[Rfam]
RNA sequence: GAGAAUAUUGUCGAUUUUACUCGUAUAAUCUUGGGAAUAUGGCCCAGAAGUUUCUACCGAGCUACCGUAAAUGGCUUGACUACGAGGCAGUGUAUAUUAAAU
Numbered sequence: 001g002a003g004a005a006u007a008u009u010g011u012c013g014a015u016u017u018u019a020c021u022c023g024u025a026u027a028a029u030c031u032u033g034g035g036a037a038u039a040u041g042g043c044c045c046a047g048a049a050g051u052u053u054c055u056a057c058c059g060a061g062c063u064a065c066c067g068u069a070a071a072u073g074g075c076u077u078g079a080c081u082a083c084g085a086g087g088c089a090g091u092g093u094a095u096a097u098u099a100a101a102u
Base pairs, nucleotide, nucleotide: 020086021085022084023083024082025081029049031047032046033045034044035043058078059077060076061075062074063073064072
The record is a 102-nucleotide RNA from Bacillus sp. MRMR6, which matches "Purine riboswitch aptamer" in Rfam. It scores 85 bits against the family's covariance model. Rfam's curators write: Riboswitches are metabolite binding domains within certain messenger RNAs that serve as precision sensors for their corresponding targets. Clan: Purine riboswitches. Taxonomically the source falls in Bacillus (Bacteria, Bacillota, Bacilli, Caryophanales).